[Rfam]
RNA sequence: GUGGGAACAGCACAGCCGCAAGUCUGACUCGCCGGGGCGCUCGCCCACGGCUCGGGAUUGCGGCAGUGC
Numbered sequence: 001g002u003g004g005g006a007a008c009a010g011c012a013c014a015g016c017c018g019c020a021a022g023u024c025u026g027a028c029u030c031g032c033c034g035g036g037g038c039g040c041u042c043g044c045c046c047a048c049g050g051c052u053c054g055g056g057a058u059u060g061c062g063g064c065a066g067u068g069c
Base pairs, nucleotide, nucleotide: 010069011068012067013066015064016063017062018061019060020059021058024056025055031051032050033049034048035046036045037044038043

This 69-nucleotide sequence from haloarchaeon 3A1-DGR belongs to the Rfam family "S15-Halobacteria ribosomal protein leader". The organism belongs to Halobacteriales, within Archaea. It is one of the family's seed sequences. It is annotated as a cis-regulatory leader. A reference for the family is Eckert and Weinberg (2020), "Discovery of 20 novel ribosomal leader candidates in bacteria and archaea", BMC Microbiol. The family is grouped with related families in Rfam's "Ribosomal Protein S15 Leader clan".